[Rfam]
RNA sequence: UUCUUAUAAAGAGAGGUGGAGGGACUGGCCCUUUGAUACCUCGGCAGCGGACUCACAGAAGUGCUGUGCCAAAUCCAGCAAGCUACGUGCUUGAAUGAUAAGAA
Dot-bracket structure: (((((((.....(((((...(((.[[[[)))......)))))((((.((.(((......)))..))))))....]]]](((((.....)))))....)))))))
RNA: SAM riboswitch aptamer (S box leader)